[Rfam]
Betaproteobacteria toxic small RNA: a 66-nucleotide RNA sequence from Oxalobacteraceae bacterium OM1. The literature on the family includes a 2012 paper in Genome Res by Kimelman et al., "A vast collection of microbial genes that are toxic to bacteria". Rfam's curators write: Overexpression in amino aid rich medium attenuates growth, suggesting role in repressing amino acid intake and metabolism.
RNA sequence: UGUCUCCUCCACCCGCAACGUGGCGUGGAUUCCGAGCCCGGCCCGACUCAGGCCGGGCUUUUUUUC
Number, nucleotide and partner (000 for none) at each position: 001u000002g000003u000004c000005u000006c000007c000008u029009c028010c027011a026012c025013c023014c022015g000016c000017a000018a000019c000020g000021u000022g014023g013024c000025g012026u011027g010028g009029a008030u000031u000032c000033c000034g000035a059036g058037c057038c056039c055040g054041g053042c052043c000044c000045g000046a000047c000048u000049c000050a000051g000052g042053c041054c040055g039056g038057g037058c036059u035060u000061u000062u000063u000064u000065u000066c000